[Rfam]
RNA sequence: GAAAAAAAGUUGUGUAAGUCGCUCUGGAUAAGAGCGUCUGCUAAAAUGCCUAUA
Numbered sequence: 001g002a003a004a005a006a007a008a009g010u011u012g013u014g015u016a017a018g019u020c021g022c023u024c025u026g027g028a029u030a031a032g033a034g035c036g037u038c039u040g041c042u043a044a045a046a047u048g049c050c051u052a053u054a
Stems, first nucleotide, its partner, number of pairs: 013043001014041003020036006
A member of the RNA family "UnaL2 LINE 3' element" from Synaphobranchus kaupii, 54 nucleotides long. The family's consensus secondary structure is taken from published work. The literature on the family includes a 2004 paper in RNA by Baba et al., "Solution structure of an RNA stem-loop derived from the 3' conserved region of eel LINE UnaL2". The source organism's lineage runs through Eukaryota, Metazoa, Teleostomi, Euteleostomi and Synaphobranchus.